Acido-Lenti-1 RNA: a 46-nucleotide sequence from Desulfonema ishimotonii. The family's RNA type in Rfam is small RNA. A search with the family's covariance model found it, with a score of 38 bits. The family's consensus secondary structure is taken from published work.

Nucleotides: 046
Stems, first nucleotide, its partner, number of pairs: 001020008033045005
Number, partner (000 for none) and nucleotide at each position: 001020c002019c003018c004017g005016g006015c007014a008013a009000u010000a011000a012000a013008u014007u015006g016005c017004c018003g019002g020001g021000c022000u023000a024000u025000u026000c027000c028000c029000g030000g031000a032000c033045a034044u035043c036042c037041c038000u039000u040000c041037g042036g043035g044034a045033u046000c